The family of this 293-nucleotide RNA sequence from Paenibacillus lentus is "glmS glucosamine-6-phosphate activated ribozyme aptamer".
[Rfam]
Nucleotides: 293
Base pairs, nucleotide, nucleotide: 020174021173022172023171024170025169027167029165030164031163183214184213185212186211187210191203192202193201194200215233216232217231218230219229220228238283241280242279243278244277252269253268254267255266256265257264258263
Number, partner (000 for none) and nucleotide at each position: 001000c002000u003000a004000g005000c006000a007000a008000u009000a010000u011000a012000a013000g014000c015000g016000c017000c018000a019000g020174a021173g022172c023171u024170u025169c026000a027167a028000c029165u030164g031163c032000g033000c034000g035000a036000g037000g038000u039000u040000a041000u042000g043000a044000u045000u046000u047000a048000u049000g050000u051000g052000c053000c054000g055000g056000u057000g058000a059000u060000u061000u062000g063000c064000g065000a066000u067000g068000a069000a070000u071000c072000a073000a074000u075000u076000a077000u078000a079000g080000a081000u082000g083000g084000u085000g086000a087000g088000u089000g090000a091000u092000g093000u094000g095000g096000g097000c098000a099000u100000c101000g102000g103000g104000a105000g106000a107000u108000a109000g110000u111000g112000a113000a114000g115000c116000u117000c118000g119000c120000u121000u122000a123000g124000g125000c126000a127000u128000c129000g130000a131000c132000u133000a134000g135000c136000a137000a138000u139000g140000a141000u142000c143000c144000u145000a146000c147000a148000u149000a150000a151000g152000a153000u154000c155000a156000u157000g158000a159000c160000u161000c162000g163031g164030c165029a166000a167027u168000a169025g170024a171023a172022g173021c174020u175000g176000a177000c178000g179000a180000g181000g182000u183214g184213g185212a186211g187210g188000u189000g190000u191203u192202c193201g194200a195000a196000a197000u198000g199000u200194u201193c202192g203191g204000c205000g206000g207000g208000g209000a210187c211186c212185u213184c214183c215233c216232g217231g218230u219229a220228u221000u222000u223000c224000a225000u226000c227000c228220a229219u230218a231217c232216c233215g234000u235000g236000a237000c238283c239000g240000a241280g242279g243278a244277a245000g246000u247000c248000a249000a250000a251000a252269g253268g254267a255266a256265c257264g258263g259000g260000c261000a262000a263258c264257u265256g266255u267254u268253c269252u270000c271000a272000c273000a274000a275000a276000c277244u278243u279242c280241c281000c282000g283238g284000a285000a286000g287000g288000a289000u290000g291000c292000u293000g